[Rfam]
RNA sequence: AAAAAUAAAAGAAAGAGUAAAAAGUUUUGAAGCUACAGAGAGCUGUUGUUUGGUGUGAAACAGUGUGGAUUACUUUUGAAAAUCAUCUUUUUUAUUGAAAAUCUGAAAUUAUUAUAAAAUUAAGAUUUUUCGUAGUGGUUUACGUUACAAAUACCUGACAUUGUUAGAUGUUAUAAGUGCUUCACUAUGUGAAGAAAAAAGGUGGUACCGCGAUUAUUUCGUCCUUUGC
Number, nucleotide and partner (000 for none) at each position: 001a000002a000003a000004a000005a095006u094007a000008a000009a089010a088011g087012a086013a000014a000015g000016a000017g000018u000019a000020a077021a076022a075023a074024g073025u072026u000027u000028u000029g000030a000031a000032g066033c065034u000035a000036c000037a000038g000039a000040g000041a000042g064043c063044u062045g061046u060047u059048g000049u000050u000051u000052g000053g000054u000055g000056u000057g000058a000059a047060a046061c045062a044063g043064u042065g033066u032067g000068g000069a000070u000071u000072a025073c024074u023075u022076u021077u020078g000079a000080a000081a000082a000083u000084c000085a000086u012087c011088u010089u009090u000091u000092u000093u000094a006095u005096u000097g000098a129099a128100a127101a126102u125103c124104u123105g000106a000107a000108a000109u000110u000111a000112u000113u000114a000115u000116a000117a000118a000119a000120u000121u000122a000123a104124g103125a102126u101127u100128u099129u098130u000131c144132g143133u142134a000135g000136u000137g000138g000139u000140u000141u000142a133143c132144g131145u000146u000147a000148c000149a000150a000151a000152u000153a000154c000155c000156u000157g000158a000159c000160a000161u000162u000163g000164u000165u000166a000167g000168a000169u000170g000171u000172u000173a000174u000175a000176a000177g000178u000179g000180c194181u193182u192183c191184a190185c189186u000187a000188u000189g185190u184191g183192a182193a181194g180195a000196a000197a000198a000199a226200a225201g224202g223203u000204g000205g000206u000207a000208c000209c000210g222211c221212g220213a219214u000215u000216a000217u000218u000219u213220c212221g211222u210223c202224c201225u200226u199227u000228g000229c000
Background
Shown here is a 229-nucleotide sequence from Helcococcus ovis, a member of the family "T-box leader". The family's RNA type in Rfam is cis-regulatory leader. The family's consensus secondary structure is taken from published work. The match comes from Rfam's covariance-model search (115 bits). The source organism's lineage runs through Bacteria, Bacillati, Bacillota, Peptoniphilaceae and Helcococcus.